[Rfam]
RNA sequence: GCCUUGUGGUUCCUAGAGACGGCUGAUCUGUGGGGUUUAAUUGACGGGCAAAUAUUAACAUCUGCGAUUUAUGCAUGGGAGCUACCACUCCAAGGAACUUCCUUAGCCCGGUUAUUGAGACAUUC
Numbered sequence: 001g002c003c004u005u006g007u008g009g010u011u012c013c014u015a016g017a018g019a020c021g022g023c024u025g026a027u028c029u030g031u032g033g034g035g036u037u038u039a040a041u042u043g044a045c046g047g048g049c050a051a052a053u054a055u056u057a058a059c060a061u062c063u064g065c066g067a068u069u070u071a072u073g074c075a076u077g078g079g080a081g082c083u084a085c086c087a088c089u090c091c092a093a094g095g096a097a098c099u100u101c102c103u104u105a106g107c108c109c110g111g112u113u114a115u116u117g118a119g120a121c122a123u124u125c
Stems, first nucleotide, its partner, number of pairs: 001049004007039002011035005017029001020025001062117001064115001066113004073107002075104001077102002080099002083096001085095002
Dot-bracket structure: ((((..((..(((((.(..(....)...).)))))..))......))))............(.(.((((...(((.((.((.(.((.......))).)).)).).))..)))).).)........

A member of the RNA family "Small nucleolar RNA SNORA84" from Oncorhynchus mykiss, 125 nucleotides long. The base pairs follow the family's consensus structure, which was predicted with WAR. On this family, see Marker et al., Curr Biol 2002: "Experimental RNomics: identification of 140 candidates for small non-messenger RNAs in the plant Arabidopsis thaliana".